[Rfam]
RNA sequence: UUCCGGCUGUCCAAAAGUCGGGAUUACUGAAGAGGCACACCUUCAUUGCCGGCAGUGCGGAUGCGGUUCUCCAAUUCCAAUCCAAGGCAGACAAAGCGGGAUGACGCGAGUGAAGCGUCGUUCCAUCGCCGCAUGAGUUUUCGCGUGAU
Dot-bracket structure: ((((((((.......))))))))..........((((.........))))......(((.....................((.......))........(.(......).)...............)))....................